A member of the RNA family "Mammalian CPEB3 ribozyme" from Laticauda laticaudata, 77 nucleotides long.
Lineage of the source: Eukaryota > Chordata > Sauropsida > Sauria > Laticauda.
The match comes from Rfam's covariance-model search (72 bits).
RNA sequence: AGAUGUUCAGUGGGGGCCAUAGAAGGAGCGUUCACGUCGUGGCCCCUGUCAGGUAUCUGUUUACCUGCGAAUCCUUC
Numbered sequence: 001a002g003a004u005g006u007u008c009a010g011u012g013g014g015g016g017c018c019a020u021a022g023a024a025g026g027a028g029c030g031u032u033c034a035c036g037u038c039g040u041g042g043c044c045c046c047u048g049u050c051a052g053g054u055a056u057c058u059g060u061u062u063a064c065c066u067g068c069g070a071a072u073c074c075u076u077c
Stems, first nucleotide, its partner, number of pairs: 013046006022077006028040003050067006